Rfam assigns this 69-nucleotide sequence from Brachypodium distachyon to the family "Small nucleolar RNA snoR53Y". Pairs were carried over by alignment from the consensus structure, which was predicted with WAR. The source organism's lineage runs through Eukaryota, Euphyllophyta, Magnoliopsida, Poales and Brachypodium.

RNA sequence: GUUCCCAGUGAUGCAUUAACCAUGCUAAUACUGAUCCUCUGACGAGCAAUAUAUUAUACUGAGGGAAUC
Numbered sequence: 001g002u003u004c005c006c007a008g009u010g011a012u013g014c015a016u017u018a019a020c021c022a023u024g025c026u027a028a029u030a031c032u033g034a035u036c037c038u039c040u041g042a043c044g045a046g047c048a049a050u051a052u053a054u055u056a057u058a059c060u061g062a063g064g065g066a067a068u069c
Stems, first nucleotide, its partner, number of pairs: 001068005